Shown here is a 122-nucleotide sequence from Pseudomonas flexibilis, a member of the family "Ribosomal S15 leader". Lineage of the source: Bacteria > Gammaproteobacteria > Pseudomonadales > Pseudomonadaceae > Pseudomonas. On this family, see Benard et al., Biochimie 1996: "Pseudoknot and translational control in the expression of the S15 ribosomal protein". Pairs were carried over by alignment from the consensus structure, which is taken from published work. Clan: Ribosomal Protein S15 Leader clan.
[Rfam]
RNA sequence: GGUCAUGCCUCUAUUCAUAAACACGGGAAGCGAUUCCCGGCCUGUUCACUCAAGGAGCCCAUACCAUGGCACUGAGCGUUGAAGAAAAAGCCCAGAUCGUUAACGAGAACAAGCAGCACGAA
Numbered sequence: 001g002g003u004c005a006u007g008c009c010u011c012u013a014u015u016c017a018u019a020a021a022c023a024c025g026g027g028a029a030g031c032g033a034u035u036c037c038c039g040g041c042c043u044g045u046u047c048a049c050u051c052a053a054g055g056a057g058c059c060c061a062u063a064c065c066a067u068g069g070c071a072c073u074g075a076g077c078g079u080u081g082a083a084g085a086a087a088a089a090g091c092c093c094a095g096a097u098c099g100u101u102a103a104c105g106a107g108a109a110c111a112a113g114c115a116g117c118a119c120g121a122a
Stems, first nucleotide, its partner, number of pairs: 008027003012023001049076003054073002057070001
Dot-bracket structure: .......(((.(..........).))).....................(((..((.(............).)))))..............................................